[Rfam]
RNA sequence: ACAUCCAGUCACGGGUACCCGGUGCGAAUCCGGGCUGAGACGCCGACAAACGGCGAACCGUCGAACCUGAUCCGGUUAGUACCGGCGCUAGGGAGAUUAUUGUGAAAACUU
Number, nucleotide and partner (000 for none) at each position: 001a000002c000003a000004u000005c000006c000007a098008g097009u096010c095011a061012c060013g059014g058015g000016u055017a000018c034019c033020c032021g031022g000023u000024g000025c000026g000027a000028a000029u000030c000031c021032g020033g019034g018035c000036u000037g000038a000039g000040a000041c000042g054043c053044c052045g051046a000047c000048a000049a000050a000051c045052g044053g043054c042055g016056a000057a000058c014059c013060g012061u011062c000063g000064a000065a000066c092067c091068u090069g089070a000071u000072c085073c084074g083075g082076u000077u000078a000079g000080u000081a000082c075083c074084g073085g072086c000087g000088c000089u069090a068091g067092g066093g000094a000095g010096a009097u008098u007099a000100u000101u000102g000103u000104g000105a000106a000107a000108a000109c000110u000111u000
RNA: TPP riboswitch aptamer (THI element)